[Rfam]
The record is a 60-nucleotide RNA from Gallus gallus, which matches "mir-7445 microRNA precursor family" in Rfam.
The source organism's lineage runs through Eukaryota, Eumetazoa, Chordata, Coelurosauria and Gallus.
Gene Ontology terms of the family: miRNA-mediated post-transcriptional gene silencing and RISC complex.
The base pairs follow the family's consensus structure, which was predicted with RNAalifold.

RNA sequence: AAAGUUAAACAGACUCAUCCACAACAGGAGUGUCUCGUGGAUGAGUCUGUUUAACUUUAU
Numbered sequence: 001a002a003a004g005u006u007a008a009a010c011a012g013a014c015u016c017a018u019c020c021a022c023a024a025c026a027g028g029a030g031u032g033u034c035u036c037g038u039g040g041a042u043g044a045g046u047c048u049g050u051u052u053a054a055c056u057u058u059a060u
Stems, first nucleotide, its partner, number of pairs: 001058022024035001026033001